[Rfam]
RNA: U11 spliceosomal RNA
Organism: Dendrobium nobile
Nucleotides: 130
Base pairs, nucleotide, nucleotide: 008083009082010081011080012079021033022032023031024030035054036053037052038051039050041048042047055078056077057076058075059074060073101128102127103126104125105124106123107122108121109120110118111117
Number, partner (000 for none) and nucleotide at each position: 001000a002000a003000a004000a005000g006000g007000g008083g009082u010081c011080g012079g013000u014000u015000g016000a017000c018000u019000a020000u021033g022032u023031g024030u025000a026000u027000g028000c029000c030024a031023u032022g033021c034000u035054c036053g037052c038051c039050u040000u041048u042047u043000a044000a045000u046000u047042a048041a049000u050039g051038g052037g053036u054035g055078u056077u057076g058075u059074a060073u061000a062000g063000u064000u065000a066000u067000c068000a069000a070000g071000a072000c073060a074059u075058a076057u077056g078055g079012u080011u081010g082009a083008c084000a085000u086000a087000a088000u089000u090000u091000a092000u093000g094000g095000a096000g097000u098000u099000a100000a101128u102127a103126g104125g105124g106123u107122u108121g109120g110118c111117u112000u113000a114000c115000u116000c117111g118110g119000g120109c121108u122107a123106a124105c125104c126103c127102u128101g129000c130000u